[Rfam]
RNA: let-7 microRNA precursor family
RNA sequence: GUGGGAUGAGGUAGUAGUUUGUAUAGUUUUAGGAUCACAACAGAUCUGGGAGAUAACUAUACAGCCUACUGUCUUUCUCAC
Numbered sequence: 001g002u003g004g005g006a007u008g009a010g011g012u013a014g015u016a017g018u019u020u021g022u023a024u025a026g027u028u029u030u031a032g033g034a035u036c037a038c039a040a041c042a043g044a045u046c047u048g049g050g051a052g053a054u055a056a057c058u059a060u061a062c063a064g065c066c067u068a069c070u071g072u073c074u075u076u077c078u079c080a081c
Base pairs, nucleotide, nucleotide: 001081002080003079004078005077006076008075009074010073011072012071013070014069015068016067017066019064020063021062022061023060024059025058026057027056032046033045035043